The family of this 171-nucleotide RNA sequence from Macrococcoides bohemicum is "Listeria sRNA rli28".
The base pairs follow the family's consensus structure, which was predicted with RNAalifold.
It is annotated as a small RNA.
NCBI's taxonomy places the organism under Bacteria, Bacillota, Caryophanales, Staphylococcaceae, Macrococcoides.

RNA sequence: UUUUACCUAUUAUAAUAUAUCAUGUAGUUUAGUUUAUGAUGGUGGCUAGCCAUAAAGGGGUGAUGCUUAUCGUUUUACUUUUGGUGUUAUCCCCAGAAAGGAUAAGCAUGACUAUUUAUGAAGCAUUGAUAUUUGCACUACUUUUUGCAGAUAUCAUGCUAUGUGUCAUAG
Numbered sequence: 001u002u003u004u005a006c007c008u009a010u011u012a013u014a015a016u017a018u019a020u021c022a023u024g025u026a027g028u029u030u031a032g033u034u035u036a037u038g039a040u041g042g043u044g045g046c047u048a049g050c051c052a053u054a055a056a057g058g059g060g061u062g063a064u065g066c067u068u069a070u071c072g073u074u075u076u077a078c079u080u081u082u083g084g085u086g087u088u089a090u091c092c093c094c095a096g097a098a099a100g101g102a103u104a105a106g107c108a109u110g111a112c113u114a115u116u117u118a119u120g121a122a123g124c125a126u127u128g129a130u131a132u133u134u135g136c137a138c139u140a141c142u143u144u145u146u147g148c149a150g151a152u153a154u155c156a157u158g159c160u161a162u163g164u165g166u167c168a169u170a171g
Base pairs, nucleotide, nucleotide: 043150045148046147057093058092059091060090061089062088063087065085066084110130112128114126115125117123159171161169162168